[Rfam]
RNA sequence: UGGCAUACCCGUAGACCUUGCUUGGCUGCUUAUAGUCAGGCAGGGGGGACAGUGUGUGCAAGAGAAAUCGGAGUCUCUGCAAAUGUUAACCAGCUUAUUCAGUGACUGGAUAAACUGCAGUACUCCAACAUUC
Number, nucleotide and partner (000 for none) at each position: 001u000002g000003g059004c058005a057006u056007a055008c054009c000010c000011g000012u000013a000014g000015a000016c045017c044018u043019u042020g041021c040022u039023u038024g037025g000026c000027u000028g000029c000030u000031u000032a000033u000034a000035g000036u000037c024038a023039g022040g021041c020042a019043g018044g017045g016046g000047g000048g000049a000050c000051a000052g000053u000054g008055u007056g006057u005058g004059c003060a000061a000062g000063a000064g000065a000066a000067a000068u000069c000070g126071g125072a124073g123074u000075c000076u000077c000078u119079g118080c117081a000082a000083a000084u000085g000086u000087u000088a000089a000090c109091c108092a107093g106094c000095u000096u000097a000098u000099u000100c000101a000102g000103u000104g000105a000106c093107u092108g091109g090110a000111u000112a000113a000114a000115c000116u000117g080118c079119a078120g000121u000122a000123c073124u072125c071126c070127a000128a000129c000130a000131u000132u000133c000

Rfam assigns this 133-nucleotide RNA from Jaculus jaculus to the family "Small nucleolar RNA SNORA58". A reference for the family is Huttenhofer et al. (2001), "RNomics: an experimental approach that identifies 201 candidates for novel, small, non-messenger RNAs in mouse", EMBO J. The family has 20 seed sequences and 471 matches in Rfam 15.1. Rfam classes the family as an H/ACA-box small nucleolar RNA. The base pairs follow the family's consensus structure, which was predicted with PFOLD. The source organism's lineage runs through Eukaryota, Dipnotetrapodomorpha, Rodentia, Myomorpha and Jaculus.